[Rfam]
RNA sequence: UGCACGCAUGACUGUAAGUCACUUUGGAUAAAAGCGUCUGCUAAAUUAAAAAAA
Numbered sequence: 001u002g003c004a005c006g007c008a009u010g011a012c013u014g015u016a017a018g019u020c021a022c023u024u025u026g027g028a029u030a031a032a033a034g035c036g037u038c039u040g041c042u043a044a045a046u047u048a049a050a051a052a053a054a
Stems, first nucleotide, its partner, number of pairs: 013043001014041003020036001022034004
RNA: UnaL2 LINE 3' element